[Rfam]
RNA sequence: CUCCAGCGGCGGGAUUUUGGGGGCGAGAUGAGUUUUGCUCUUAAUCCAACUGGCCCGCAAAGUCCCGCUUCUGGCC
Numbered sequence: 001c002u003c004c005a006g007c008g009g010c011g012g013g014a015u016u017u018u019g020g021g022g023g024c025g026a027g028a029u030g031a032g033u034u035u036u037g038c039u040c041u042u043a044a045u046c047c048a049a050c051u052g053g054c055c056c057g058c059a060a061a062g063u064c065c066c067g068c069u070u071c072u073g074g075c076c
Stems, first nucleotide, its partner, number of pairs: 003074004008069001010067004015062005021056004026051002029048002
Annotation:
Rfam assigns this 76-nucleotide RNA sequence from Chanos chanos to the family "mir-193 microRNA precursor family". On this family, see Ahn et al., Mol Hum Reprod 2010: "MicroRNA transcriptome in the newborn mouse ovaries determined by massive parallel sequencing". The match comes from Rfam's covariance-model search (72 bits). The organism belongs to Chanos, within Eukaryota.